Alphaproteobacterial ar14: a 120-nucleotide sequence from Aurantimonas aggregata.

RNA sequence: GAGUUUCGCGACGGCCCACCUCCUCCCGGGUCCUAGCGGAUACGGGGCUGCCACUCCUCCUCCCAAUCGGCAGUCUCAUCCUAGUCGCCCGCCGGGUCCUCCCCCCGGCGGGCGCUCAGA
Numbered sequence: 001g002a003g004u005u006u007c008g009c010g011a012c013g014g015c016c017c018a019c020c021u022c023c024u025c026c027c028g029g030g031u032c033c034u035a036g037c038g039g040a041u042a043c044g045g046g047g048c049u050g051c052c053a054c055u056c057c058u059c060c061u062c063c064c065a066a067u068c069g070g071c072a073g074u075c076u077c078a079u080c081c082u083a084g085u086c087g088c089c090c091g092c093c094g095g096g097u098c099c100u101c102c103c104c105c106c107g108g109c110g111g112g113c114g115c116u117c118a119g120a
Stems, first nucleotide, its partner, number of pairs: 007038003011034001013032005044077009086114010
The base pairs follow the family's consensus structure. The source organism's lineage runs through Bacteria, Pseudomonadati, Alphaproteobacteria, Hyphomicrobiales and Aurantimonas.